[Rfam]
RNA: MIR2655 microRNA precursor family
RNA sequence: CCCUUAUCUUUUAAAAGUUUAAAGUUGGUCCCUUAUCUUUAUUUUAGGUUUCAAGUUGGUUCAUUCCGUCAAUUUUUUUAUUGUUACCGUUAAAAUUAAACACGUGUCAUCUGUCCAAGUGUACCACAUGUCCAAAUUAGUUUGUCACGUGUCCAAAUUUAACGGAAAUAGUUAAAAAAUUGAUGGAAAUGAUCAACUUGAAACAUAAAAUAAAGAUAAGGGACCAACUUGAAACUUUUAAAAGAUAAGGGA
Number, nucleotide and partner (000 for none) at each position: 001c000002c250003c249004u248005u247006a246007u245008c244009u000010u000011u000012u000013a000014a000015a000016a000017g000018u000019u000020u000021a000022a000023a229024g228025u227026u000027g225028g224029u223030c000031c221032c220033u219034u218035a217036u216037c215038u214039u213040u212041a211042u210043u209044u000045u207046a206047g000048g000049u000050u000051u000052c000053a000054a000055g000056u000057u000058g000059g000060u000061u000062c000063a000064u000065u000066c000067c000068g000069u000070c000071a000072a000073u000074u000075u000076u000077u000078u000079u000080a000081u000082u000083g000084u000085u000086a000087c000088c000089g000090u000091u000092a000093a000094a000095a000096u000097u000098a000099a000100a000101c000102a000103c000104g000105u000106g000107u000108c000109a000110u000111c000112u000113g000114u000115c000116c000117a000118a000119g000120u000121g000122u000123a000124c000125c000126a000127c000128a000129u000130g000131u000132c000133c000134a000135a000136a000137u000138u000139a000140g000141u000142u000143u000144g000145u000146c000147a000148c000149g000150u000151g000152u000153c000154c000155a000156a000157a000158u000159u000160u000161a000162a000163c000164g000165g000166a000167a000168a000169u000170a000171g000172u000173u000174a000175a000176a000177a000178a000179a000180u000181u000182g000183a000184u000185g000186g000187a000188a000189a000190u000191g000192a000193u000194c000195a000196a000197c000198u000199u000200g000201a000202a000203a000204c000205a000206u046207a045208a000209a043210a042211u041212a040213a039214a038215g037216a036217u035218a034219a033220g032221g031222g000223a029224c028225c027226a000227a025228c024229u023230u000231g000232a000233a000234a000235c000236u000237u000238u000239u000240a000241a000242a000243a000244g008245a007246u006247a005248a004249g003250g002251g000252a000